RNA sequence: GUCAUACUACGGUGCAUGGCACUGCAAAGUAAACGAUGACCCAUAGUGAACUUCGCGGUAAAAUGCGUAUCAAAUUGAAAAAUUGCUGCUGACCUGGGACUUUGUUCCCGGGUCGGUUUUCUUU
Dot-bracket structure: (((((....((..((.............))...)))))))(......)........((((.......))))................(((((((((((........))))))))))).......
Shown here is a 124-nucleotide RNA from Enterobacter cancerogenus, a member of the family "Enterobacteria greA leader". Gene Ontology term of the family: regulation of gene expression. The literature on the family includes a 2010 paper in Genome Biol by Naville and Gautheret, "Premature terminator analysis sheds light on a hidden world of bacterial transcriptional attenuation". It is annotated as a cis-regulatory leader. Taxonomically the source falls in Enterobacter cancerogenus (Bacteria, Pseudomonadati, Pseudomonadota, Enterobacter cloacae complex).